Nucleotides: 087
Base pairs, nucleotide, nucleotide: 002085003084004083006081007080008079009078011076012075013074014073015072016071017070018069019068020067021066024063025062026061027060028059029058031056032055033054035052036051037050040047041046
Number, partner (000 for none) and nucleotide at each position: 001000a002085u003084u004083g005000a006081g007080g008079a009078a010000g011076c012075g013074u014073u015072u016071u017070g018069c019068c020067u021066a022000c023000u024063u025062g026061g027060a028059c029058a030000u031056a032055a033054a034000g035052c036051g037050c038000g039000u040047c041046c042000u043000u044000a045000a046041g047040g048000g049000a050037g051036c052035g053000a054033u055032u056031u057000u058029u059028g060027u061026c062025c063024a064000u065000g066021u067020a068019g069018g070017c071016a072015a073014a074013a075012c076011g077000a078009u079008u080007c081006c082000c083004c084003a085002a086000g087000g

Overview
This 87-nucleotide sequence from Gossypium schwendimanii belongs to the Rfam family "MIR7486 microRNA precursor family". Pairs were carried over by alignment from the consensus structure, which was predicted with RNAalifold. Lineage of the source: Eukaryota > Tracheophyta > Gunneridae > Malvoideae > Gossypium. A search with the family's covariance model found it, with a score of 67 bits.